[Rfam]
RNA sequence: GAUUUUGAAGAUGGUAUCUAAAUAUAUCUGUUAGUAUUUAUUAGGCUGUUGGCAGAGGGAUUUUUCUAUUGCAGAAGAAAAAUCUGGAGUCCUGAACAGAAAGGAC
Numbered sequence: 001g002a003u004u005u006u007g008a009a010g011a012u013g014g015u016a017u018c019u020a021a022a023u024a025u026a027u028c029u030g031u032u033a034g035u036a037u038u039u040a041u042u043a044g045g046c047u048g049u050u051g052g053c054a055g056a057g058g059g060a061u062u063u064u065u066c067u068a069u070u071g072c073a074g075a076a077g078a079a080a081a082a083u084c085u086g087g088a089g090u091c092c093u094g095a096a097c098a099g100a101a102a103g104g105a106c
Stems, first nucleotide, its partner, number of pairs: 003104004
The record is a 106-nucleotide RNA sequence from Calonectris borealis, which matches "Small nucleolar RNA Z159/U59" in Rfam. By type it is a C/D-box small nucleolar RNA. The family is grouped with related families in Rfam's "SNORD59 clan". Rfam links the family to the GO terms nucleolus and RNA processing. NCBI's taxonomy places the organism under Eukaryota, Dipnotetrapodomorpha, Archelosauria, Aequornithes, Calonectris.